Rfam assigns this 130-nucleotide RNA from Streptomyces sp. HG99 to the family "Streptomyces RNA 5676". Lineage of the source: Bacteria > Bacillati > Actinomycetes > Kitasatosporales > Streptomyces. Identified by deep sequencing of transcriptome at the end of exponential growth phase. Appears longer on northern blot than sequencing transcript. This indicates processing step. Streptomyces specific.

RNA sequence: AGAUGAGAGAUACACCCCGCCCACAGGGGACUGUGGGUGGCACCGGGUCGAGGCUUCCCCAGCUUCGCCCUGGUCGUGCCCUCGCGCACACCACCGGACCUUCCGGCUCCGGAUCUCCUCACCGAUCGGA
Number, nucleotide and partner (000 for none) at each position: 001a000002g000003a000004u121005g120006a119007g118008a000009g117010a116011u000012a000013c000014a000015c000016c000017c040018c039019g038020c037021c036022c035023a034024c033025a032026g031027g000028g000029g000030a000031c026032u025033g024034u023035g022036g021037g020038u019039g018040g017041c000042a074043c073044c072045g071046g070047g069048u000049c067050g066051a065052g064053g063054c062055u000056u000057c000058c000059c000060c000061a000062g054063c053064u052065u051066c050067g049068c000069c047070c046071u045072g044073g043074u042075c000076g089077u088078g087079c086080c000081c000082u000083c000084g000085c000086g079087c078088a077089c076090a000091c000092c000093a000094c112095c111096g110097g109098a108099c106100c105101u000102u000103c000104c000105g100106g099107c000108u098109c097110c096111g095112g094113a000114u000115c000116u010117c009118c007119u006120c005121a004122c129123c128124g000125a000126u000127c000128g123129g122130a000
Record summary:
It is annotated as a small RNA. The base pairs follow the family's consensus structure.